Nuclear RNase P: a 328-nucleotide RNA sequence from Candida viswanathii. The family's RNA type in Rfam is ribozyme.
RNA sequence: UCCGGUGUCGUUUCGCAUUUACCCGUCAACACAAGGAGCUGUCACUUUCAGCUCAUCACUACAGAAAUACGGGUGGGAAAUUCGGUGGUACGCUCCAUCUGUUCCAAAAGUUGCUCCUGAGAGCUUCUUCCUCAGCAUGAAAAUGCAUGGGCGGUGUUACAAGAAAUAACACGGAGUGUUCGGGCUGUAAAAGGUCUGCUUCGUAUGGGAAUGGCGCCGUGGAUGGUUGGCUGUGGUGGCGGUAAUACGUCCCCGCAAGCUGUUUAGUGCAAUAUGCGAACUUGAAGGUCUAAUCUUCAAGCACCCGAUACCGAUCAUCGACGUCGGA
Numbered sequence: 001u002c003c004g005g006u007g008u009c010g011u012u013u014c015g016c017a018u019u020u021a022c023c024c025g026u027c028a029a030c031a032c033a034a035g036g037a038g039c040u041g042u043c044a045c046u047u048u049c050a051g052c053u054c055a056u057c058a059c060u061a062c063a064g065a066a067a068u069a070c071g072g073g074u075g076g077g078a079a080a081u082u083c084g085g086u087g088g089u090a091c092g093c094u095c096c097a098u099c100u101g102u103u104c105c106a107a108a109a110g111u112u113g114c115u116c117c118u119g120a121g122a123g124c125u126u127c128u129u130c131c132u133c134a135g136c137a138u139g140a141a142a143a144u145g146c147a148u149g150g151g152c153g154g155u156g157u158u159a160c161a162a163g164a165a166a167u168a169a170c171a172c173g174g175a176g177u178g179u180u181c182g183g184g185c186u187g188u189a190a191a192a193g194g195u196c197u198g199c200u201u202c203g204u205a206u207g208g209g210a211a212u213g214g215c216g217c218c219g220u221g222g223a224u225g226g227u228u229g230g231c232u233g234u235g236g237u238g239g240c241g242g243u244a245a246u247a248c249g250u251c252c253c254c255g256c257a258a259g260c261u262g263u264u265u266a267g268u269g270c271a272a273u274a275u276g277c278g279a280a281c282u283u284g285a286a287g288g289u290c291u292a293a294u295c296u297u298c299a300a301g302c303a304c305c306c307g308a309u310a311c312c313g314a315u316c317a318u319c320g321a322c323g324u325c326g327g328a
Stems, first nucleotide, its partner, number of pairs: 001328004007322003012280007021074005036054006083313005103223003113124004138143001152219007171204007281301007